[Rfam]
RNA sequence: GGGGAUAUAUAGCGGCUGGUGUCGUUCCCGGACUUCAAAUCCGUGUGUCGGGGCGCAGAACGUUCCGAGGUGUGUUCGAUUCGCACAUAUCCCC
Numbered sequence: 001g002g003g004g005a006u007a008u009a010u011a012g013c014g015g016c017u018g019g020u021g022u023c024g025u026u027c028c029c030g031g032a033c034u035u036c037a038a039a040u041c042c043g044u045g046u047g048u049c050g051g052g053g054c055g056c057a058g059a060a061c062g063u064u065c066c067g068a069g070g071u072g073u074g075u076u077c078g079a080u081u082c083g084c085a086c087a088u089a090u091c092c093c094c
Stems, first nucleotide, its partner, number of pairs: 001094008011026006028045001029043004048068005071085004